Record summary: This 372-nucleotide RNA from Methanolobus halotolerans belongs to the Rfam family "Archaeal RNase P". Its family is annotated with ribonuclease P activity, tRNA processing and multimeric ribonuclease P complex in the Gene Ontology. The family is grouped with related families in Rfam's "RNaseP clan". By type it is a ribozyme. Ribonuclease P (RNase P) is a ubiquitous endoribonuclease, found in archaea, bacteria and eukarya as well as chloroplasts and mitochondria. Its best characterised activity is the generation of mature 5'-ends of tRNAs by cleaving the 5'-leader elements of precursor-tRNAs. Cellular RNase Ps are ribonucleoproteins. RNA from bacterial RNase Ps retains its catalytic activity in the absence of the protein subunit, i.e. it is a ribozyme. Isolated eukaryotic and archaeal RNase P RNA has not been shown to retain its catalytic function, but is still essential for the catalytic activity of the holoenzyme. Although the archaeal and eukaryotic holoenzymes have a much greater protein content than the bacterial ones, the RNA cores from all the three lineages are homologous -- helices corresponding to P1, P2, P3, P4, and P10/11 are common to all cellular RNase P RNAs. Yet, there is considerable sequence variation, particularly among the eukaryotic RNAs.
RNA sequence: GAGAGAGGAAGGACGGCUGCCGGGUCGUAAGACCUGAGGAAAGUCUCCCCACCAUAUAAACACACGAGUGCCUGUAAAGGGCACCGGGCGAGAGUCCGGGCAGUUGUAUUGCAACUCAUGCAGUUCUUAUGCAUGCUGGCACAGAAACGAUACCGUACCAUGUUAAUGCUGUGAUGCUGAGAGGCUGAGGUCGCAUGGAUCGCGGAUGGAACGGCGAAACUUCGUGGGUGCAAGUCGGAAAAAGGAUUGGUCUUGAUCAUCCUGAUUAUAUGACGCUUAGCCGAAUGCCGUCAAUGCAGCUUUUCGGAGCACAUCUCCUGCCAGGCGGGAUGAUGUAUUGCAUUAACAGAAGGGAGCUUACUCUCCUCACUC
Numbered sequence: 001g002a003g004a005g006a007g008g009a010a011g012g013a014c015g016g017c018u019g020c021c022g023g024g025u026c027g028u029a030a031g032a033c034c035u036g037a038g039g040a041a042a043g044u045c046u047c048c049c050c051a052c053c054a055u056a057u058a059a060a061c062a063c064a065c066g067a068g069u070g071c072c073u074g075u076a077a078a079g080g081g082c083a084c085c086g087g088g089c090g091a092g093a094g095u096c097c098g099g100g101c102a103g104u105u106g107u108a109u110u111g112c113a114a115c116u117c118a119u120g121c122a123g124u125u126c127u128u129a130u131g132c133a134u135g136c137u138g139g140c141a142c143a144g145a146a147a148c149g150a151u152a153c154c155g156u157a158c159c160a161u162g163u164u165a166a167u168g169c170u171g172u173g174a175u176g177c178u179g180a181g182a183g184g185c186u187g188a189g190g191u192c193g194c195a196u197g198g199a200u201c202g203c204g205g206a207u208g209g210a211a212c213g214g215c216g217a218a219a220c221u222u223c224g225u226g227g228g229u230g231c232a233a234g235u236c237g238g239a240a241a242a243a244g245g246a247u248u249g250g251u252c253u254u255g256a257u258c259a260u261c262c263u264g265a266u267u268a269u270a271u272g273a274c275g276c277u278u279a280g281c282c283g284a285a286u287g288c289c290g291u292c293a294a295u296g297c298a299g300c301u302u303u304u305c306g307g308a309g310c311a312c313a314u315c316u317c318c319u320g321c322c323a324g325g326c327g328g329g330a331u332g333a334u335g336u337a338u339u340g341c342a343u344u345a346a347c348a349g350a351a352g353g354g355a356g357c358u359u360a361c362u363c364u365c366c367u368c369a370c371u372c
Base pairs, nucleotide, nucleotide: 001372002371003370005368006367007366008365009364010362011361012292013291014290015289016288017287021036022035023034024033025032041359042358043357045356046355047354048353049352050230051229052228053227057255060254063226064225065224066223067222068084069083070082071081072080085135086134088132089131137217139215140214153205154204155203158198159197160196161195162194163193176185177184234274235273236272237271243263244262245261246260247259